[Rfam]
Notes: Shown here is a 299-nucleotide RNA from Glomus cerebriforme, a member of the family "RNase MRP". Rfam classes the family as a ribozyme. The match comes from Rfam's covariance-model search (119 bits).
RNA sequence: GAGCACCUUAAAGAAUCGCUAUCAAAGUAACACAAACGGAGCAUUAAUCCUCGGAUUAUUAGCUCUUCAUCUUUACUUUGGGGAAAGUCCUCGGGCACAUGGCAGAAAGUGUCGCCCAUAAUGAGGUAUAACCAAUUCGUACUUCAUGGCCUUCCUUAUGAUCGAAGAAGGGUUCUUACUCGAGGUUAUUGGGAGUGUCGCGAAUUUGGUUUUGUUGGCCAUAGCACAGUUAUGCGAUUGUAACUUCUUUCUGUAAAGGAAAGGGGUUAUAACACAACGGGGCUUACUCAUAGGGUGUU
Numbered sequence: 001g002a003g004c005a006c007c008u009u010a011a012a013g014a015a016u017c018g019c020u021a022u023c024a025a026a027g028u029a030a031c032a033c034a035a036a037c038g039g040a041g042c043a044u045u046a047a048u049c050c051u052c053g054g055a056u057u058a059u060u061a062g063c064u065c066u067u068c069a070u071c072u073u074u075a076c077u078u079u080g081g082g083g084a085a086a087g088u089c090c091u092c093g094g095g096c097a098c099a100u101g102g103c104a105g106a107a108a109g110u111g112u113c114g115c116c117c118a119u120a121a122u123g124a125g126g127u128a129u130a131a132c133c134a135a136u137u138c139g140u141a142c143u144u145c146a147u148g149g150c151c152u153u154c155c156u157u158a159u160g161a162u163c164g165a166a167g168a169a170g171g172g173u174u175c176u177u178a179c180u181c182g183a184g185g186u187u188a189u190u191g192g193g194a195g196u197g198u199c200g201c202g203a204a205u206u207u208g209g210u211u212u213u214g215u216u217g218g219c220c221a222u223a224g225c226a227c228a229g230u231u232a233u234g235c236g237a238u239u240g241u242a243a244c245u246u247c248u249u250u251c252u253g254u255a256a257a258g259g260a261a262a263g264g265g266g267u268u269a270u271a272a273c274a275c276a277a278c279g280g281g282g283c284u285u286a287c288u289c290a291u292a293g294g295g296u297g298u299u
Base pairs, nucleotide, nucleotide: 002299003298004297005296006295007294008293009292010291014239015238016237017236018235019234022081023080024079025078026077027076028075039065040064041063042062085285086284087283089282090281091280092279101113102112103111104110114129117126119124131210132209133208138200139199141198143197145195150192151191160187161186162185163184170180171179241269242268243267244266245265246264247263248262249261250260251259
Dot-bracket structure: .(((((((((...((((((..(((((((..........((((...................)))).........)))))))...[[[.[[[[........((((.....))))(..(.(....).)..).(((....((.(.(.(....((........((((......((.......))...))))...))..).)))).......))).......................)))))).(((((((((((.......))))))))))).........]]]]]]].....)))))))))
Description: Gene Ontology terms of the family: ribonuclease MRP activity, rRNA processing and ribonuclease MRP complex. The source organism's lineage runs through Eukaryota, Opisthokonta, Fungi, Glomeromycotina and Glomus.